[Rfam]
RNA sequence: GGGCUGGCUUUAGCUCAGUGGUUACUUUGAUUCAAGCUUCACUUAAUAACCACUCUUGCUUGCAAGGGUGGUUCAUGACCUGUGGAUGCUCACCAGCCUUUUA
Numbered sequence: 001g002g003g004c005u006g007g008c009u010u011u012a013g014c015u016c017a018g019u020g021g022u023u024a025c026u027u028u029g030a031u032u033c034a035a036g037c038u039u040c041a042c043u044u045a046a047u048a049a050c051c052a053c054u055c056u057u058g059c060u061u062g063c064a065a066g067g068g069u070g071g072u073u074c075a076u077g078a079c080c081u082g083u084g085g086a087u088g089c090u091c092a093c094c095a096g097c098c099u100u101u102u103a
Base pairs, nucleotide, nucleotide: 002098003097004096005095006094007093013087015085016084018083019082020081021080026077028075029074030073
The family of this 103-nucleotide sequence from Phyllostomus discolor is "Vault RNA". The family's consensus secondary structure is taken from published work. It is annotated as a non-coding RNA gene.